This 64-nucleotide RNA from Cnephaeus nilssonii belongs to the Rfam family "mir-9242 microRNA precursor family". The base pairs follow the family's consensus structure, which was predicted with RNAalifold. Lineage of the source: Eukaryota > Gnathostomata > Euteleostomi > Amniota > Cnephaeus.

RNA sequence: GGCCUCCCUCUGUAGGGCGAUCAAUCUGGGGGCCCUGAGAUCGAUCACCCCACAGAGGGAGGCC
Numbered sequence: 001g002g003c004c005u006c007c008c009u010c011u012g013u014a015g016g017g018c019g020a021u022c023a024a025u026c027u028g029g030g031g032g033c034c035c036u037g038a039g040a041u042c043g044a045u046c047a048c049c050c051c052a053c054a055g056a057g058g059g060a061g062g063c064c
Stems, first nucleotide, its partner, number of pairs: 001064013015050003019046004024041004029036002